RNA sequence: AAAACAGUUGAAGCGCCAGAGCUAAAGAAAUCGGACGGAAAUGAUCUUUAGCAGACGAGGUGGAGGUUUAUCGAAGUUUCGGCGGAUGCCUCCCGGCCGCGAUACCCGGUCGUCAUGUUAUUUCUUAAAGCCCGGAAGUGAUUUCGGAUGGAAAGGAAAUAGUGGGUACAGUA
Numbered sequence: 001a002a003a004a005c006a007g008u009u010g011a012a013g014c015g016c017c018a019g020a021g022c023u024a025a026a027g028a029a030a031u032c033g034g035a036c037g038g039a040a041a042u043g044a045u046c047u048u049u050a051g052c053a054g055a056c057g058a059g060g061u062g063g064a065g066g067u068u069u070a071u072c073g074a075a076g077u078u079u080c081g082g083c084g085g086a087u088g089c090c091u092c093c094c095g096g097c098c099g100c101g102a103u104a105c106c107c108g109g110u111c112g113u114c115a116u117g118u119u120a121u122u123u124c125u126u127a128a129a130g131c132c133c134g135g136a137a138g139u140g141a142u143u144u145c146g147g148a149u150g151g152a153a154a155g156g157a158a159a160u161a162g163u164g165g166g167u168a169c170a171g172u173a
Stems, first nucleotide, its partner, number of pairs: 021052007062093005071082004094112006117163007132147006

The family of this 173-nucleotide RNA sequence from Paenisporosarcina cavernae is "glmS glucosamine-6-phosphate activated ribozyme aptamer". Pairs were carried over by alignment from the consensus structure, which is taken from published work. The organism belongs to Paenisporosarcina, within Bacteria. Rfam classes the family as a riboswitch. Its family is annotated with regulation of gene expression and catalytic activity in the Gene Ontology. The match comes from Rfam's covariance-model search (111 bits).